A member of the RNA family "mir-278 microRNA precursor family" from Lytechinus variegatus, 77 nucleotides long.
Gene Ontology terms of the family: RISC complex and miRNA-mediated post-transcriptional gene silencing.
A reference for the family is Ruby et al. (2007), "Evolution, biogenesis, expression, and target predictions of a substantially expanded set of Drosophila microRNAs", Genome Res.
The base pairs follow the family's consensus structure, which was predicted with RNAalifold.

Nucleotides: 077
Base pairs, nucleotide, nucleotide: 003075004074005073010068011067012066013065014064015063017061018060020058021057022056023055025053027051028050029049
Number, partner (000 for none) and nucleotide at each position: 001000c002000u003075u004074c005073u006000c007000u008000u009000g010068g011067a012066a013065u014064g015063a016000a017061a018060g019000c020058c021057u022056c023055g024000c025053c026000a027051a028050u029049c030000u031000g032000u033000c034000a035000u036000u037000g038000u039000u040000a041000c042000u043000a044000a045000a046000c047000a048000a049029g050028g051027u052000c053025g054000g055023u056022g057021g058020g059000a060018c061017u062000u063015u064014c065013g066012u067011u068010c069000g070000a071000c072000u073005a074004g075003a076000a077000g